Annotation: Shown here is a 79-nucleotide RNA from Globodera rostochiensis, a member of the family "mir-252 microRNA precursor family". The source organism's lineage runs through Eukaryota, Rhabditida, Tylenchina, Heteroderidae and Globodera. The family is grouped with related families in Rfam's "mir-252 microRNA precursor family". The base pairs follow the family's consensus structure, which was predicted with RNAalifold. A reference for the family is Li et al. (2009), "Direct sequencing and expression analysis of a large number of miRNAs in Aedes aegypti and a multi-species survey of novel mosquito miRNAs", BMC Genomics.

RNA sequence: UCCAUCCGCUAAGUAGUAGUGCCGCAUUUAACGGUGCUACCGCUUGGGUUUAAGUGCACGCUGCUGCUUAACCGAUGGA
Number, nucleotide and partner (000 for none) at each position: 001u079002c078003c077004a076005u075006c074007c000008g000009c000010u070011a069012a068013g067014u066015a065016g064017u063018a062019g061020u000021g000022c000023c000024g057025c056026a055027u054028u053029u052030a051031a000032c000033g000034g000035u000036g000037c000038u000039a000040c000041c000042g000043c000044u000045u000046g000047g000048g000049u000050u000051u030052a029053a028054g027055u026056g025057c024058a000059c000060g000061c019062u018063g017064c016065u015066g014067c013068u012069u011070a010071a000072c000073c000074g006075a005076u004077g003078g002079a001